[Rfam]
RNA sequence: GAAUGAUGUGAUGAUUAGAUUAAUUUCCCUAUUGGUUUGAUUGCUGAUAUGAUGGCAAAUCUAUGUAUUAGCUCUAUCUGAUCAUUC
Numbered sequence: 001g002a003a004u005g006a007u008g009u010g011a012u013g014a015u016u017a018g019a020u021u022a023a024u025u026u027c028c029c030u031a032u033u034g035g036u037u038u039g040a041u042u043g044c045u046g047a048u049a050u051g052a053u054g055g056c057a058a059a060u061c062u063a064u065g066u067a068u069u070a071g072c073u074c075u076a077u078c079u080g081a082u083c084a085u086u087c
Stems, first nucleotide, its partner, number of pairs: 002086004042057004
RNA: Small nucleolar RNA Z102/R77
Organism: Papaver somniferum